[Rfam]
This 111-nucleotide RNA from Anisodus acutangulus belongs to the Rfam family "MIR398 microRNA precursor family". Rfam links the family to the GO terms RISC complex and miRNA-mediated post-transcriptional gene silencing. A search with the family's covariance model found it, with a score of 61 bits.
RNA sequence: GUGCACCCCAGAGGAGUGAGCCUUGGAACACAGGUGCAUUUUGGUCCUUUUGUUUUGUAAUUACUGAACCAAAAUAUACUUGUGUUCUCAUGUCACCCCUUUCAGAUCACC
Numbered sequence: 001g002u003g004c005a006c007c008c009c010a011g012a013g014g015a016g017u018g019a020g021c022c023u024u025g026g027a028a029c030a031c032a033g034g035u036g037c038a039u040u041u042u043g044g045u046c047c048u049u050u051u052g053u054u055u056u057g058u059a060a061u062u063a064c065u066g067a068a069c070c071a072a073a074a075u076a077u078a079c080u081u082g083u084g085u086u087c088u089c090a091u092g093u094c095a096c097c098c099c100u101u102u103c104a105g106a107u108c109a110c111c
Base pairs, nucleotide, nucleotide: 007105011101012100013099014098016096017095018094019093025088026087027086028085029084030083031082032081033080